The record is a 117-nucleotide sequence, which matches "Flavo-1 RNA" in Rfam. Rfam 15.1 lists 7,497 matches to the family in 411 species. Rfam classes the family as a small RNA.
[Rfam]
RNA sequence: GUUUAGCCCUGAUGGAAGCGGCAUCCUUUUUUGUCAUUGCGACUGACUAAAAGUUGAACAAAUUGCUUCACUUUGCCCGCAAUGACAAAAAAGAUAUAGCGGACAGCAGGUUCCUGG
Numbered sequence: 001g002u003u004u005a006g007c008c009c010u011g012a013u014g015g016a017a018g019c020g021g022c023a024u025c026c027u028u029u030u031u032u033g034u035c036a037u038u039g040c041g042a043c044u045g046a047c048u049a050a051a052a053g054u055u056g057a058a059c060a061a062a063u064u065g066c067u068u069c070a071c072u073u074u075g076c077c078c079g080c081a082a083u084g085a086c087a088a089a090a091a092a093g094a095u096a097u098a099g100c101g102g103a104c105a106g107c108a109g110g111u112u113c114c115u116g117g
Stems, first nucleotide, its partner, number of pairs: 009109003013105002018100002023095003029090013